[Rfam]
The record is a 68-nucleotide sequence from Mycobacteroides abscessus, which matches "ASdes TB sRNA" in Rfam.
Rfam's curators put it in the seed alignment.
RNA sequence: AGUUCCACCGGGUCCACCGAGCGGGUGACCACCAGGUAGUCGCGGAUGGCGAUGCCGUGCCGGUUUUC
Numbered sequence: 001a002g003u004u005c006c007a008c009c010g011g012g013u014c015c016a017c018c019g020a021g022c023g024g025g026u027g028a029c030c031a032c033c034a035g036g037u038a039g040u041c042g043c044g045g046a047u048g049g050c051g052a053u054g055c056c057g058u059g060c061c062g063g064u065u066u067u068c
Stems, first nucleotide, its partner, number of pairs: 004063002008059001011030003015027004035056004040052004